RNA sequence: AACCAAGUUUCGGGGGCCUCGGUACAGGCAGGCUGGGGAAUCCCCUCUUUUACACAAGGCGCUCCGCCCUCCCCGACAGGGCGGAUGACGCAAACGGUUCGGGGGUCCUGGUACAGGCAGGCCGGGAAAUCCCCCUUUUUAUGCCAGGAGGUUCGCCUUGCGGCCUCCUCUCCCUUUCGGGGGCCUCGGUACAGGCAGGCCGGGGAAUCCCCUUCUUUAUCCAGCGG
Dot-bracket structure: ...........((((((((((((........)))))))..)))))............(.((.....(((.........)))....)).)...........(((((.((((((........))))))...)))))............((.((..(((...)).).)).)).........(((((.((((((........))))))...)))))...............
Description: The record is a 227-nucleotide sequence from Pseudomonas panipatensis, which matches "Nitrogen regulated small RNA" in Rfam. Pairs were carried over by alignment from the consensus structure. About the family: Found in the opportunistic pathogen Pseudomonas aeruginosa PAO1. Its transcription is induced during nitrogen limitation by the NtrB/C two-component system (an important regulator of nitrogen assimilation and swarming motility) together with the alternative sigma factor RpoN (a global regulator involved in nitrogen metabolism). Gene Ontology term of the family: bacterial-type flagellum-dependent swarming motility. A reference for the family is Wenner et al. (2014), "NrsZ: a novel, processed, nitrogen-dependent, small non-coding RNA that regulates Pseudomonas aeruginosa PAO1 virulence", Environ Microbiol.